[Rfam]
RNA sequence: CUUGGGCUUCCGUGAUGAUUUACAAUCAUAGCAUAGUUCAUCUGAAUAUUUUAUGAAGACAACUGUAGCAUAUAUAGUCUUUCGCUCCCAUCUGACUGUUGCCCUUA
Numbered sequence: 001c002u003u004g005g006g007c008u009u010c011c012g013u014g015a016u017g018a019u020u021u022a023c024a025a026u027c028a029u030a031g032c033a034u035a036g037u038u039c040a041u042c043u044g045a046a047u048a049u050u051u052u053a054u055g056a057a058g059a060c061a062a063c064u065g066u067a068g069c070a071u072a073u074a075u076a077g078u079c080u081u082u083c084g085c086u087c088c089c090a091u092c093u094g095a096c097u098g099u100u101g102c103c104c105u106u107a
Stems, first nucleotide, its partner, number of pairs: 004104004
About this RNA: The family of this 107-nucleotide sequence from Sordaria macrospora is "Small nucleolar RNA snR60/Z15/Z230/Z193/J17". Gene Ontology terms of the family: nucleolus and RNA processing. A reference for the family is Lowe and Eddy (1999), "A computational screen for methylation guide snoRNAs in yeast", Science. The match comes from Rfam's covariance-model search (65 bits). By type it is a C/D-box small nucleolar RNA. The family is grouped with related families in Rfam's "SNORD77 clan". Pairs were carried over by alignment from the consensus structure.